[Rfam]
The record is a 372-nucleotide sequence from Aerosticca soli, which matches "Bacterial RNase P class A" in Rfam. Gene Ontology terms of the family: tRNA processing, dimeric ribonuclease P complex and ribonuclease P activity.
RNA sequence: GGAGUCGGUCGGGCAGUCGCGGCGUUCUUUUAAGGGCGCCGAGGAAAGUCCGGGCUCCACAGGGCAGGGUGCCAGGUAACGCCUGGGCGGCGCGAGCCGACGGAAAGUGCAACAGAGAACAGACCGCCGAACGGCGACCGCAAGGUCGCGCGUGGCAAGGGUGAAACGGUGCGGCAAGAGCGCACCGCGUGCGGGGCCAACGCCGCACGGCACGGCAAACCCCACCCGGAGCAAGACCGCAUAGGGGAACGAUGACGUGGCCCGCGUCAGUUCCCGGGUAGGUCGCUGGAGCCAGGCGGCGACGCCUGGCCUAGAGGAAUGACUGUCACGCCGCGAGGCGUACAGAACCCGGCUUACAGACCGACUCCGCCC
Numbered sequence: 001g002g003a004g005u006c007g008g009u010c011g012g013g014c015a016g017u018c019g020c021g022g023c024g025u026u027c028u029u030u031u032a033a034g035g036g037c038g039c040c041g042a043g044g045a046a047a048g049u050c051c052g053g054g055c056u057c058c059a060c061a062g063g064g065c066a067g068g069g070u071g072c073c074a075g076g077u078a079a080c081g082c083c084u085g086g087g088c089g090g091c092g093c094g095a096g097c098c099g100a101c102g103g104a105a106a107g108u109g110c111a112a113c114a115g116a117g118a119a120c121a122g123a124c125c126g127c128c129g130a131a132c133g134g135c136g137a138c139c140g141c142a143a144g145g146u147c148g149c150g151c152g153u154g155g156c157a158a159g160g161g162u163g164a165a166a167c168g169g170u171g172c173g174g175c176a177a178g179a180g181c182g183c184a185c186c187g188c189g190u191g192c193g194g195g196g197c198c199a200a201c202g203c204c205g206c207a208c209g210g211c212a213c214g215g216c217a218a219a220c221c222c223c224a225c226c227c228g229g230a231g232c233a234a235g236a237c238c239g240c241a242u243a244g245g246g247g248a249a250c251g252a253u254g255a256c257g258u259g260g261c262c263c264g265c266g267u268c269a270g271u272u273c274c275c276g277g278g279u280a281g282g283u284c285g286c287u288g289g290a291g292c293c294a295g296g297c298g299g300c301g302a303c304g305c306c307u308g309g310c311c312u313a314g315a316g317g318a319a320u321g322a323c324u325g326u327c328a329c330g331c332c333g334c335g336a337g338g339c340g341u342a343c344a345g346a347a348c349c350c351g352g353c354u355u356a357c358a359g360a361c362c363g364a365c366u367c368c369g370c371c372c
Stems, first nucleotide, its partner, number of pairs: 001368010011357001012327007020041009046355003050352005055231004062263004067227005072086005087101001088099004102222002107220002109216002124160002126156003132150002168186006187211001188209005193203001195201001235284004245275006254268005291310008
Ribonuclease P (RNase P) is a ubiquitous endoribonuclease, found in archaea, bacteria and eukarya as well as chloroplasts and mitochondria.